[Rfam]
RNA sequence: UAAAAAAAAGGGGUGCAGGGGAAGUAUUCCCAUGUCGCAGUCAGAAGGGUGCUCAGGCUGCUUUGCAGCCGUCGAAGGAGAA
Numbered sequence: 001u002a003a004a005a006a007a008a009a010g011g012g013g014u015g016c017a018g019g020g021g022a023a024g025u026a027u028u029c030c031c032a033u034g035u036c037g038c039a040g041u042c043a044g045a046a047g048g049g050u051g052c053u054c055a056g057g058c059u060g061c062u063u064u065g066c067a068g069c070c071g072u073c074g075a076a077g078g079a080g081a082a
Base pairs, nucleotide, nucleotide: 015035016034017033019031020030021029022028056070057069058068059067060066
Notes
The family of this 82-nucleotide sequence from Anaerosolibacter carboniphilus is "Clostridiales-2 RNA". A search with the family's covariance model found it, with a score of 78 bits. The family has 44 seed sequences and 285 matches in Rfam 15.1. The family's consensus secondary structure is taken from published work. Taxonomically the source falls in Anaerosolibacter (Bacteria, Bacillati, Bacillota, Clostridia).